[Rfam]
RNA sequence: UGGUCAGUGAUGACAAGACCACUGCGCAAUCUGAGUUCACAGUCUGGGAACCAGAUGAUUGAUGUGUGCUGAGCUUGGCUGAGACCG
Numbered sequence: 001u002g003g004u005c006a007g008u009g010a011u012g013a014c015a016a017g018a019c020c021a022c023u024g025c026g027c028a029a030u031c032u033g034a035g036u037u038c039a040c041a042g043u044c045u046g047g048g049a050a051c052c053a054g055a056u057g058a059u060u061g062a063u064g065u066g067u068g069c070u071g072a073g074c075u076u077g078g079c080u081g082a083g084a085c086c087g
Stems, first nucleotide, its partner, number of pairs: 002086004044054004
The family of this 87-nucleotide RNA from Galemys pyrenaicus is "small Cajal body-specific RNA 18". It is annotated as a small Cajal body RNA. On this family, see Tycowski et al., Curr Biol 2004: "Guide RNAs with 5' caps and novel box C/D snoRNA-like domains for modification of snRNAs in metazoa". About the family: scaRNAs are a specific class of small nuclear RNAs which localise to the Cajal bodies and guide the modification of RNA polymerase II transcribed spliceosomal RNAs U1, U2, U4, U5 and U12. This C/D box domain U91 (also known as U4-8) was identified by Darzacq and is predicted to guide the 2'O-ribose methylation of U4 snRNA C8. Pairs were carried over by alignment from the consensus structure, which was predicted with PFOLD. Rfam links the family to the GO terms Cajal body, RNA processing and nucleolus.